This 95-nucleotide RNA from Hibiscus syriacus belongs to the Rfam family "Small nucleolar RNA snoR109". Pairs were carried over by alignment from the consensus structure, which was predicted with WAR. The family's RNA type in Rfam is H/ACA-box small nucleolar RNA. The source organism's lineage runs through Eukaryota, Viridiplantae, Magnoliopsida, Gunneridae and Hibiscus.
[Rfam]
RNA sequence: CGGCUGUAGCUAUAUUUAAAUCAAAUCGGCUGUGAAGUUAACUGGCCGGUUAUCGUUCUCCGUCGAAUAAUCUGCUUACCGAACUUCACACAUUU
Numbered sequence: 001c002g003g004c005u006g007u008a009g010c011u012a013u014a015u016u017u018a019a020a021u022c023a024a025a026u027c028g029g030c031u032g033u034g035a036a037g038u039u040a041a042c043u044g045g046c047c048g049g050u051u052a053u054c055g056u057u058c059u060c061c062g063u064c065g066a067a068u069a070a071u072c073u074g075c076u077u078a079c080c081g082a083a084c085u086u087c088a089c090a091c092a093u094u095u
Base pairs, nucleotide, nucleotide: 032089033088034087035086036085037084038083039082044076045075046074048072049071050070051069053066054065055064